RNA sequence: AUGUUCGGGUAAUCGCUGUAUGAUUGAAUCAUGCAGAGGAAAGUCCAUGCUCACACAGACUGCGAUGUCUGUAGUGUUCGUGCCUGACGAAUUCAUAAGUCAGGGUAGCCUUUAUGGCUAACGGCAGGGAAAAUCACCUACGUCCAUUCUGGAUAUGGGAUGAGUACCUUGAAAGUGCCACAGAGACGUAUUUCAGCUAGAAAUAGUUGAACUGGAACGGGUAAACCCCACGAGUGAGCAACCCAAAUAAUGGUAGGGGCACUCUCCUAGCGGGAAAUGAACCAAGGGAGGGACAAGCGGAUAACGCUUGUAGAUAGAUGAUUACCACCUGAGUACGAGGCCUGACCGCCGUUUGUAGUACGAUGGUACAAAACAUGGCUUACAGAA
Numbered sequence: 001a002u003g004u005u006c007g008g009g010u011a012a013u014c015g016c017u018g019u020a021u022g023a024u025u026g027a028a029u030c031a032u033g034c035a036g037a038g039g040a041a042a043g044u045c046c047a048u049g050c051u052c053a054c055a056c057a058g059a060c061u062g063c064g065a066u067g068u069c070u071g072u073a074g075u076g077u078u079c080g081u082g083c084c085u086g087a088c089g090a091a092u093u094c095a096u097a098a099g100u101c102a103g104g105g106u107a108g109c110c111u112u113u114a115u116g117g118c119u120a121a122c123g124g125c126a127g128g129g130a131a132a133a134u135c136a137c138c139u140a141c142g143u144c145c146a147u148u149c150u151g152g153a154u155a156u157g158g159g160a161u162g163a164g165u166a167c168c169u170u171g172a173a174a175g176u177g178c179c180a181c182a183g184a185g186a187c188g189u190a191u192u193u194c195a196g197c198u199a200g201a202a203a204u205a206g207u208u209g210a211a212c213u214g215g216a217a218c219g220g221g222u223a224a225a226c227c228c229c230a231c232g233a234g235u236g237a238g239c240a241a242c243c244c245a246a247a248u249a250a251u252g253g254u255a256g257g258g259g260c261a262c263u264c265u266c267c268u269a270g271c272g273g274g275a276a277a278u279g280a281a282c283c284a285a286g287g288g289a290g291g292g293a294c295a296a297g298c299g300g301a302u303a304a305c306g307c308u309u310g311u312a313g314a315u316a317g318a319u320g321a322u323u324a325c326c327a328c329c330u331g332a333g334u335a336c337g338a339g340g341c342c343u344g345a346c347c348g349c350c351g352u353u354u355g356u357a358g359u360a361c362g363a364u365g366g367u368a369c370a371a372a373a374c375a376u377g378g379c380u381u382a383c384a385g386a387a
Stems, first nucleotide, its partner, number of pairs: 004387003007383001008326007016036006041381003045378005050238005055072006078233005083104006105122001106120005123228002126169003134160002137158002142154003175226002177222003192211008242258003262292007293311006328366002333361004
Bacterial RNase P class B: a 387-nucleotide sequence from Salinibacillus xinjiangensis. Lineage of the source: Bacteria > Bacillati > Bacillota > Caryophanales > Salinibacillus. The family's RNA type in Rfam is ribozyme. Rfam's curators write: Ribonuclease P (RNase P) is a ubiquitous endoribonuclease, found in archaea, bacteria and eukarya as well as chloroplasts and mitochondria. Its best characterised activity is the generation of mature 5'-ends of tRNAs by cleaving the 5'-leader elements of precursor-tRNAs. Cellular RNase Ps are ribonucleoproteins.